RNA sequence: UAAAGUAAGAGACAAAAAUUAACUAUGUUUAUUAAAAAAAAUGUUUCCGACACUUAGCCCUCCACCAAAGGGUGGGGCAAUACAUAUU
Numbered sequence: 001u002a003a004a005g006u007a008a009g010a011g012a013c014a015a016a017a018a019u020u021a022a023c024u025a026u027g028u029u030u031a032u033u034a035a036a037a038a039a040a041a042u043g044u045u046u047c048c049g050a051c052a053c054u055u056a057g058c059c060c061u062c063c064a065c066c067a068a069a070g071g072g073u074g075g076g077g078c079a080a081u082a083c084a085u086a087u088u
Base pairs, nucleotide, nucleotide: 009047010046011045012044013043017033018032019031021029022028057078058077059076061075062074065071066070
A member of the RNA family "GA-cis RNA" from Eubacterium sp. CAG:161, 88 nucleotides long.
Pairs were carried over by alignment from the consensus structure, which is taken from published work.
It is annotated as a small RNA.
The source organism's lineage runs through Bacteria, Clostridia, Eubacteriales, Eubacteriaceae and Eubacterium.